[Rfam]
RNA sequence: AAUUAAAUAUUGCUGAAUCUCUAACAAAAUUAGAGAACGGGGGAACCAAAUUGUGUAUAUUGUUUACACACGGGGUGUAUCCUUUAAGUCUAAGGUAGGAGUCUCUUGAUCCGAAUCCGACAGCUAACCUCGUAAGCAUCAGGAGAGAGAAUCC
Numbered sequence: 001a002a003u004u005a006a007a008u009a010u011u012g013c014u015g016a017a018u019c020u021c022u023a024a025c026a027a028a029a030u031u032a033g034a035g036a037a038c039g040g041g042g043g044a045a046c047c048a049a050a051u052u053g054u055g056u057a058u059a060u061u062g063u064u065u066a067c068a069c070a071c072g073g074g075g076u077g078u079a080u081c082c083u084u085u086a087a088g089u090c091u092a093a094g095g096u097a098g099g100a101g102u103c104u105c106u107u108g109a110u111c112c113g114a115a116u117c118c119g120a121c122a123g124c125u126a127a128c129c130u131c132g133u134a135a136g137c138a139u140c141a142g143g144a145g146a147g148a149g150a151a152u153c154c
Base pairs, nucleotide, nucleotide: 011138012137013136014135018036019035020034021033022032023031024030037133038132039131040130041129042128047072073118074117075116081095082094083093084092098112099111100110
The record is a 154-nucleotide RNA from Litchfieldia salsa, which matches "c-di-AMP riboswitch aptamer (ydaO/yuaA leader)" in Rfam. A search with the family's covariance model found it, with a score of 92 bits.